[Rfam]
RNA sequence: GAGAUAUGAUGAGUUCUACAUUGGUCCGUGUUUCUGAAUCACCGUGACCGACAACUUCUUCCAAUUUCUGAUCUC
Numbered sequence: 001g002a003g004a005u006a007u008g009a010u011g012a013g014u015u016c017u018a019c020a021u022u023g024g025u026c027c028g029u030g031u032u033u034c035u036g037a038a039u040c041a042c043c044g045u046g047a048c049c050g051a052c053a054a055c056u057u058c059u060u061c062c063a064a065u066u067u068c069u070g071a072u073c074u075c
Stems, first nucleotide, its partner, number of pairs: 001075004
This 75-nucleotide sequence from Cajanus cajan belongs to the Rfam family "Small nucleolar RNA SNORD18". Rfam 15.1 lists 2,622 matches to the family in 960 species. A search with the family's covariance model found it, with a score of 46 bits. Lineage of the source: Eukaryota > Pentapetalae > Fabales > Phaseoleae > Cajanus. For this family Rfam cites "Release of U18 snoRNA from its host intron requires interaction of Nop1p with the Rnt1p endonuclease" (Giorgi et al., EMBO J, 2001). By type it is a C/D-box small nucleolar RNA. Pairs were carried over by alignment from the consensus structure, which was predicted with PFOLD.